This 69-nucleotide RNA from Medicago truncatula belongs to the Rfam family "MIR2629 microRNA precursor family".
Its family is annotated with RISC complex and miRNA-mediated post-transcriptional gene silencing in the Gene Ontology.
The base pairs follow the family's consensus structure, which was predicted with RNAalifold.
A search with the family's covariance model found it, with a score of 66 bits.
RNA sequence: UGCCAAAGUUUUCCUUGGUAAUUAACUGCAGCCGGUUCCGUAAUUCGGCAGUUAACUGCCGAAGGUAUU
Numbered sequence: 001u002g003c004c005a006a007a008g009u010u011u012u013c014c015u016u017g018g019u020a021a022u023u024a025a026c027u028g029c030a031g032c033c034g035g036u037u038c039c040g041u042a043a044u045u046c047g048g049c050a051g052u053u054a055a056c057u058g059c060c061g062a063a064g065g066u067a068u069u
Stems, first nucleotide, its partner, number of pairs: 012065002015062006022055008